This 78-nucleotide RNA from Brucella gallinifaecis belongs to the Rfam family "ybhL leader". The literature on the family includes a 2005 paper in Genome Biol by Corbino et al., "Evidence for a second class of S-adenosylmethionine riboswitches and other regulatory RNA motifs in alpha-proteobacteria". The family's RNA type in Rfam is cis-regulatory leader. Pairs were carried over by alignment from the consensus structure. Rfam links the family to the GO term regulation of gene expression. The match comes from Rfam's covariance-model search (60 bits).

RNA sequence: CAGGCAUGCUGGGGUUCCGCCAGCGGCGCCUGGGAGUGGCUCGGAAUGAGCCUGCCCCCGACACCGGACGGAACAAGG
Numbered sequence: 001c002a003g004g005c006a007u008g009c010u011g012g013g014g015u016u017c018c019g020c021c022a023g024c025g026g027c028g029c030c031u032g033g034g035a036g037u038g039g040c041u042c043g044g045a046a047u048g049a050g051c052c053u054g055c056c057c058c059c060g061a062c063a064c065c066g067g068a069c070g071g072a073a074c075a076a077g078g
Stems, first nucleotide, its partner, number of pairs: 014074006024066003031060004